[Rfam]
Nucleotides: 242
Stems, first nucleotide, its partner, number of pairs: 014059006060154004065149001068146003173236012186204006
Number, partner (000 for none) and nucleotide at each position: 001000a002000c003000a004000c005000g006000a007000g008000a009000g010000a011000g012000g013000a014059g015058g016057u017056g018055g019054u020000c021000c022000g023000u024000a025000c026000a027000g028000u029000g030000a031000g032000u033000g034000g035000u036000a037000c038000a039000a040000g041000g042000a043000c044000g045000c046000g047000u048000g049000a050000g051000g052000u053000g054019g055018c056017u057016g058015c059014c060154c061153g062152c063151u064000a065149g066000c067000c068146g069145c070144c071000c072000g073000a074000g075000c076000a077000c078000c079000u080000c081000g082000g083000a084000c085000g086000a087000c088000g089000c090000u091000g092000c093000c094000c095000a096000g097000c098000a099000g100000u101000c102000g103000a104000g105000u106000c107000c108000g109000g110000c111000c112000g113000c114000c115000g116000a117000c118000c119000g120000g121000g122000g123000a124000a125000c126000a127000g128000g129000c130000c131000c132000c133000g134000g135000u136000g137000c138000g139000a140000c141000a142000g143000a144070g145069g146068c147000g148000a149065c150000c151063g152062g153061c154060g155000a156000g157000a158000u159000c160000c161000c162000g163000g164000c165000a166000g167000c168000c169000a170000c171000c172000g173236c174235a175234g176233c177232c178231c179230c180229c181228g182227g183226g184225u185000g186204c187203c188202g189201u190200g191199c192000c193000c194000g195000u196000c197000c198000a199191g200190c201189a202188c203187g204186g205000c206000g207000c208000g209000a210000c211000g212000u213000c214000g215000a216000c217000g218000a219000c220000g221000u222000c223000g224000g225184a226183c227182c228181c229180g230179g231178g232177g233176g234175c235174u236173g237000u238000u239000c240000c241000g242000c